[Rfam]
Nucleotides: 434
Stems, first nucleotide, its partner, number of pairs: 024055001025053002028050002035042002065072002076103005087093001106332004113154005119148001120145004124140005159272006168266002180257002183254003187249002190246001192244001197213001199212004220224001227237002281302007308326001309324004366373002389400004
Number, partner (000 for none) and nucleotide at each position: 001000c002000g003000a004000c005000c006000u007000c008000a009000g010000a011000u012000c013000a014000g015000u016000u017000g018000u019000g020000g021000u022000g023000a024055c025053c026052c027000a028050c029049u030000g031000a032000a033000u034000u035042u036041a037000a038000g039000c040000a041036u042035a043000u044000u045000a046000g047000u048000c049029a050028g051000c052026g053025g054000a055024g056000g057000a058000a059000a060000a061000g062000a063000a064000a065072c066071u067000a068000a069000c070000c071066a072065g073000g074000a075000u076103u077102c078101c079100c080099u081000c082000a083000g084000u085000a086000a087093u088000g089000g090000u091000g092000a093087g094000c095000g096000a097000a098000c099080a100079g101078g102077g103076a104000a105000g106332a107331g108330c109329c110000c111000a112000g113154c114153a115152c116151u117150g118000a119148a120145u121144c122143c123142c124140u125139g126138c127137c128136c129000u130000g131000u132000g133000g134000u135000g136128g137127g138126g139125u140124g141000u142123g143122g144121g145120a146000c147000c148119u149000g150117u151116g152115g153114u154113g155000u156000a157000c158000a159272g160271a161270a162269g163268a164267c165000c166000c167000a168266c169265u170000c171000c172000c173000u174000g175000g176000u177000g178000c179000u180257g181256c182000u183254u184253g185252u186000g187249g188248g189000g190246g191000a192244c193000c194000c195000a196000a197213g198000u199212c200211c201210u202209u203000c204000g205000g206000a207000u208000u209202g210201a211200g212199g213197c214000c215000c216000a217000g218000c219000c220224c221000a222000u223000g224220g225000a226000u227237g228236g229000u230000g231000u232000g233000a234000g235000g236228c237227u238000g239000g240000u241000a242000g243000u244192g245000g246190c247000a248188u249187c250000u251000g252185g253184u254183g255000u256181g257180u258000u259000g260000g261000g262000c263000c264000c265169a266168g267164g268163u269162c270161u271160u272159c273000c274000c275000a276000g277000a278000g279000u280000u281302g282301g283300g284299u285298u286297g287296c288000c289000u290000g291000g292000g293000a294000a295000u296287g297286c298285a299284g300283c301282c302281c303000a304000a305000a306000g307000u308326g309324g310323g311322u312321g313000g314000u315000a316000a317000a318000c319000u320000c321312c322311a323310u324309u325000u326308u327000a328000a329109g330108g331107c332106u333000a334000a335000a336000u337000a338000c339000u340000g341000g342000c343000a344000c345000g346000a347000g348000a349000c350000c351000g352000a353000u354000a355000g356000c357000c358000a359000g360000c361000a362000a363000g364000u365000a366373c367372c368000a369000u370000a371000a372367g373366g374000g375000a376000a377000a378000g379000u380000u381000g382000a383000a384000a385000a386000g387000a388000a389400c390399u391398u392397u393000g394000a395000a396000g397392a398391g399390a400389g401000a402000g403000u404000u405000c406000a407000a408000g409000a410000g411000g412000g413000u414000g415000u416000g417000a418000a419000a420000c421000c422000a423000u424000u425000a426000a427000g428000a429000g430000a431000u432000a433000a434000a

Source information:
This 434-nucleotide part of an RNA from Carlito syrichta belongs to the Rfam family "Eukaryotic large subunit ribosomal RNA". The family's consensus secondary structure is taken from published work.